RNA sequence: UCUUUGUUUUCCACACUCUCUCAUCAGUCAGAGUGGCGAGAGAGUGUGCGAAAUGAAGAUA
Dot-bracket structure: (((((((..(.((((((.((((...............)))).)))))).)..)))))))..
Numbered sequence: 001u002c003u004u005u006g007u008u009u010u011c012c013a014c015a016c017u018c019u020c021u022c023a024u025c026a027g028u029c030a031g032a033g034u035g036g037c038g039a040g041a042g043a044g045u046g047u048g049c050g051a052a053a054u055g056a057a058g059a060u061a
Stems, first nucleotide, its partner, number of pairs: 001059007010050001012048006019041004

The family of this 61-nucleotide sequence from Pristionchus pacificus is "mir-8364 microRNA precursor family". Taxonomically the source falls in Pristionchus (Eukaryota, Bilateria, Nematoda, Neodiplogasteridae). A search with the family's covariance model found it, with a score of 68 bits.